[Rfam]
RNA sequence: AAUCGCGAUGACGACUUCUGAAUUCAAGCUCAACAGACCGGAUUGCAGGUGUUUUCUCUUCGGAGACUGUCACUUGCAUGUCGAUUACCCCGCUGAACCGAGCGAUU
Number, nucleotide and partner (000 for none) at each position: 001a107002a106003u105004c104005g103006c102007g000008a000009u000010g000011a000012c000013g000014a000015c000016u000017u000018c000019u000020g000021a000022a000023u000024u000025c000026a000027a000028g000029c000030u000031c000032a000033a000034c000035a000036g000037a000038c000039c000040g000041g000042a000043u000044u000045g000046c000047a000048g000049g000050u000051g000052u000053u000054u000055u000056c000057u000058c000059u000060u000061c000062g000063g000064a000065g000066a000067c000068u000069g000070u000071c000072a000073c000074u000075u000076g000077c000078a000079u000080g000081u000082c000083g000084a000085u000086u000087a000088c000089c000090c000091c000092g000093c000094u000095g000096a000097a000098c000099c000100g000101a000102g006103c005104g004105a003106u002107u001
RNA: Small nucleolar RNA Z107/R87